[Rfam]
RNA sequence: UCUAAGUGGAGACCAGUAACCACAAAAACGGGGCGGUACUGAAAAGCCUUAUGAGUAAGAAAAAA
Numbered sequence: 001u002c003u004a005a006g007u008g009g010a011g012a013c014c015a016g017u018a019a020c021c022a023c024a025a026a027a028a029c030g031g032g033g034c035g036g037u038a039c040u041g042a043a044a045a046g047c048c049u050u051a052u053g054a055g056u057a058a059g060a061a062a063a064a065a
Stems, first nucleotide, its partner, number of pairs: 006023004032048003039059002

This 65-nucleotide RNA belongs to the Rfam family "DUF805 RNA". Pairs were carried over by alignment from the consensus structure, which is taken from published work. By type it is a cis-regulatory element.